[Rfam]
RNA sequence: UCCCCCACAGUCCUCCGACUCUCGUUUUCCGCAAGGAAUGUCUAUCGCAGACCCCCCUCCCGGGCUAGUCAACCACGAUAUGCCGCUCUCGAGCCUGUAUCAGGACCUCGUUGAAUGCCGCAGGUUACCCCAUCUGGUCUACACUGCUGUCUGCUUACGGGACGGCCUAGCCCAGCCGGGGGAAUGAGUUUCGGAACUUAACCCUAAGAAGAUAU
Numbered sequence: 001u002c003c004c005c006c007a008c009a010g011u012c013c014u015c016c017g018a019c020u021c022u023c024g025u026u027u028u029c030c031g032c033a034a035g036g037a038a039u040g041u042c043u044a045u046c047g048c049a050g051a052c053c054c055c056c057c058u059c060c061c062g063g064g065c066u067a068g069u070c071a072a073c074c075a076c077g078a079u080a081u082g083c084c085g086c087u088c089u090c091g092a093g094c095c096u097g098u099a100u101c102a103g104g105a106c107c108u109c110g111u112u113g114a115a116u117g118c119c120g121c122a123g124g125u126u127a128c129c130c131c132a133u134c135u136g137g138u139c140u141a142c143a144c145u146g147c148u149g150u151c152u153g154c155u156u157a158c159g160g161g162a163c164g165g166c167c168u169a170g171c172c173c174a175g176c177c178g179g180g181g182g183a184a185u186g187a188g189u190u191u192c193g194g195a196a197c198u199u200a201a202c203c204c205u206a207a208g209a210a211g212a213u214a215u
Base pairs, nucleotide, nucleotide: 009198010197011196015194016193017192018191
Shown here is a 215-nucleotide part of an RNA from Dactylonectria macrodidyma, a member of the family "Ascomycota telomerase RNA". The pairing is the family consensus, mapped onto this sequence. The organism belongs to Dactylonectria, within Eukaryota.